Shown here is a 74-nucleotide RNA sequence from Rattus norvegicus, a member of the family "mir-1297 microRNA precursor family". The base pairs follow the family's consensus structure, which was predicted with RNAalifold. The organism belongs to Rattus, within Eukaryota.
[Rfam]
RNA sequence: UUAUCUGUAGGGUUGAUCUAUUGGAAUUACUUAUCUGAGCUAAAGUAAUUCAUGUAAUUCAGGUGUACUGAAAC
Numbered sequence: 001u002u003a004u005c006u007g008u009a010g011g012g013u014u015g016a017u018c019u020a021u022u023g024g025a026a027u028u029a030c031u032u033a034u035c036u037g038a039g040c041u042a043a044a045g046u047a048a049u050u051c052a053u054g055u056a057a058u059u060c061a062g063g064u065g066u067a068c069u070g071a072a073a074c
Base pairs, nucleotide, nucleotide: 004071005070007068008067009066011064013062014061015060016059019056020055021054024051025050026049027048028047029046030045031044032043